This 124-nucleotide RNA from Fulvimarina manganoxydans belongs to the Rfam family "Alphaproteobacterial ar14".
RNA sequence: CGAAUUCGCGGCAACCUCUCCUCCUCCCAAUGGUUGCCGCGAUGACAAGGACCGCCACUCCUCCUCCCAAAGGUGGUCCGUUCCUAUGAGGCCCGCCGGUUCCUCCCACCGGCGGGCACUCAAG
Numbered sequence: 001c002g003a004a005u006u007c008g009c010g011g012c013a014a015c016c017u018c019u020c021c022u023c024c025u026c027c028c029a030a031u032g033g034u035u036g037c038c039g040c041g042a043u044g045a046c047a048a049g050g051a052c053c054g055c056c057a058c059u060c061c062u063c064c065u066c067c068c069a070a071a072g073g074u075g076g077u078c079c080g081u082u083c084c085u086a087u088g089a090g091g092c093c094c095g096c097c098g099g100u101u102c103c104u105c106c107c108a109c110c111g112g113c114g115g116g117c118a119c120u121c122a123a124g
Base pairs, nucleotide, nucleotide: 007041008040009039011037012036013035014034015033016032047081049079050078051077052076053075054074055073056072090119091117092116093115094114095113096112097111098110099109
It scores 72 bits against the family's covariance model. On this family, see Robledo et al., Environ Microbiol 2017: "A conserved alpha-proteobacterial small RNA contributes to osmoadaptation and symbiotic efficiency of rhizobia on legume roots".